[Rfam]
RNA sequence: UCCAUAGACGGUGAUGGUGCUCACCACAACUGCCUCAAGAAGGAUAAUGGCGCCUGCAAAUCA
Numbered sequence: 001u002c003c004a005u006a007g008a009c010g011g012u013g014a015u016g017g018u019g020c021u022c023a024c025c026a027c028a029a030c031u032g033c034c035u036c037a038a039g040a041a042g043g044a045u046a047a048u049g050g051c052g053c054c055u056g057c058a059a060a061u062c063a
Stems, first nucleotide, its partner, number of pairs: 010025004016054006033043003
The family of this 63-nucleotide sequence from Paenalicyclobacillus ferrooxydans is "Fluoride riboswitch aptamer (crcB RNA motif)". A search with the family's covariance model found it, with a score of 46 bits. Pairs were carried over by alignment from the consensus structure, which is taken from published work.